RNA sequence: GGCUUGUCUGAGUGCAGUGAUCUUUACAAUUAACUGAUCACAACCAGUCACGGAUUUCUUUGUUCCUUCUCCACUCCCACUGCUUCACUUGACUAACCUUAA
Numbered sequence: 001g002g003c004u005u006g007u008c009u010g011a012g013u014g015c016a017g018u019g020a021u022c023u024u025u026a027c028a029a030u031u032a033a034c035u036g037a038u039c040a041c042a043a044c045c046a047g048u049c050a051c052g053g054a055u056u057u058c059u060u061u062g063u064u065c066c067u068u069c070u071c072c073a074c075u076c077c078c079a080c081u082g083c084u085u086c087a088c089u090u091g092a093c094u095a096a097c098c099u100u101a102a
Stems, first nucleotide, its partner, number of pairs: 001098002004095001006093003010090002014086001016081004028064003032060002

The record is a 102-nucleotide sequence from Otolemur garnettii, which matches "Y RNA" in Rfam. The family's RNA type in Rfam is non-coding RNA gene. The family's consensus secondary structure is taken from published work. NCBI's taxonomy places the organism under Eukaryota, Metazoa, Lorisiformes, Galagidae, Otolemur.